[Rfam]
RNA sequence: GCAUAACUGCGAAGUUUGCGUUUCCUACAAACCCCUUGACCCUAAUUACAUCUCGCCUUGGGGGUCAGACGCAACUGGGUGAGCAAGCUUGUUUUCAAGCAAGAAGCCCGAAAGCUUGUUAAGACCCCCACUUGAACCCUGCGGUUCAAGGGCAUAAGGUUAAGCGGCUAUCGCGGUUAUGCU
Numbered sequence: 001g002c003a004u005a006a007c008u009g010c011g012a013a014g015u016u017u018g019c020g021u022u023u024c025c026u027a028c029a030a031a032c033c034c035c036u037u038g039a040c041c042c043u044a045a046u047u048a049c050a051u052c053u054c055g056c057c058u059u060g061g062g063g064g065u066c067a068g069a070c071g072c073a074a075c076u077g078g079g080u081g082a083g084c085a086a087g088c089u090u091g092u093u094u095u096c097a098a099g100c101a102a103g104a105a106g107c108c109c110g111a112a113a114g115c116u117u118g119u120u121a122a123g124a125c126c127c128c129c130a131c132u133u134g135a136a137c138c139c140u141g142c143g144g145u146u147c148a149a150g151g152g153c154a155u156a157a158g159g160u161u162a163a164g165c166g167g168c169u170a171u172c173g174c175g176g177u178u179a180u181g182c183u
Stems, first nucleotide, its partner, number of pairs: 002181010013169003017166003033152003037148003041144002060129003064125003069120001071119004076114001083107002088103005